[Rfam]
RNA sequence: GGGCAGGACACUCUACCCUAACGUAGAGCGCAUAUCUGUAAGGAUAGAUAAA
Numbered sequence: 001g002g003g004c005a006g007g008a009c010a011c012u013c014u015a016c017c018c019u020a021a022c023g024u025a026g027a028g029c030g031c032a033u034a035u036c037u038g039u040a041a042g043g044a045u046a047g048a049u050a051a052a
Stems, first nucleotide, its partner, number of pairs: 011028006033046005
Shown here is a 52-nucleotide RNA sequence, a member of the family "serC leader". Rfam's curators write: This family is a putative regulatory RNA structure that is found upstream of the serC-serA operon in some alpha-proteobacteria. The final stem of the structure overlaps the ribosome binding site of the serC reading frame. On this family, see Corbino et al., Genome Biol 2005: "Evidence for a second class of S-adenosylmethionine riboswitches and other regulatory RNA motifs in alpha-proteobacteria". The pairing is the family consensus, mapped onto this sequence. It scores 50 bits against the family's covariance model. Rfam links the family to the GO term regulation of gene expression.